This 102-nucleotide RNA from Clostridium isatidis belongs to the Rfam family "Purine riboswitch aptamer". It scores 83 bits against the family's covariance model. The family's consensus secondary structure is taken from published work. NCBI's taxonomy places the organism under Bacteria, Bacillati, Bacillota, Eubacteriales, Clostridium.

RNA sequence: AAUAAAUAAUAAAAUAGUAUUCGUAUAUGCUUGAUAAUAUGGUUUAAGUGUUUCUACUAGGAAACCGUAAAUAUCCUAACUACGAAGAAUUAAUUAUUGCUA
Numbered sequence: 001a002a003u004a005a006a007u008a009a010u011a012a013a014a015u016a017g018u019a020u021u022c023g024u025a026u027a028u029g030c031u032u033g034a035u036a037a038u039a040u041g042g043u044u045u046a047a048g049u050g051u052u053u054c055u056a057c058u059a060g061g062a063a064a065c066c067g068u069a070a071a072u073a074u075c076c077u078a079a080c081u082a083c084g085a086a087g088a089a090u091u092a093a094u095u096a097u098u099g100c101u102a
Stems, first nucleotide, its partner, number of pairs: 018088001020086006029049006058078005064072001